The family of this 90-nucleotide sequence from Aquila chrysaetos is "Small nucleolar RNA U83B". The family has 21 seed sequences and 966 matches in Rfam 15.1. Taxonomically the source falls in Aquila chrysaetos (Eukaryota, Gnathostomata, Tetrapoda, Archosauria). Rfam classes the family as a C/D-box small nucleolar RNA. U83B belongs to the C/D family of snoRNAs. U83B like U83A has no documented RNA target and they share the same host gene with the C/D box snoRNA U43 (RPL3). N.B. U83A/B/C have no sequence similarity with the U83 snoRNA that was cloned by Jady and Kiss (2000). It scores 37 bits against the family's covariance model. Gene Ontology terms of the family: nucleolus and RNA processing. The literature on the family includes a 2000 paper in Nucleic Acids Res by Jady and Kiss, "Characterisation of the U83 and U84 small nucleolar RNAs: two novel 2'-O-ribose methylation guide RNAs that lack complementarities to ribosomal RNAs".
RNA sequence: GUUGUUCAAUGCCGAGGCAUGGAACAAGCACUGAGCAAUAUCUGACACCUGUGGGGACUGGCUCUGCGCUGCAUUUCUUCCCAGAGCAGU
Dot-bracket structure: (((((................................................................................)))))